[Rfam]
RNA sequence: UUACUGAACGGAUUAACUAUUGAACUGUUCUGUCCCUCUCUGACAGAGAACAAUUUCUUCUUUGACAGAGAGUGACAAAACAGUUCAAUAGUCAACAGGUCUAUAGAC
Numbered sequence: 001u002u003a004c005u006g007a008a009c010g011g012a013u014u015a016a017c018u019a020u021u022g023a024a025c026u027g028u029u030c031u032g033u034c035c036c037u038c039u040c041u042g043a044c045a046g047a048g049a050a051c052a053a054u055u056u057c058u059u060c061u062u063u064g065a066c067a068g069a070g071a072g073u074g075a076c077a078a079a080a081c082a083g084u085u086c087a088a089u090a091g092u093c094a095a096c097a098g099g100u101c102u103a104u105a106g107a108c
Base pairs, nucleotide, nucleotide: 001107002106005103006102013095014094016092017091018090019089020088021087022086023085024084025083026082027081028080029069030068031067032066033065034064049059050058052056
RNA: mir-8517 microRNA precursor family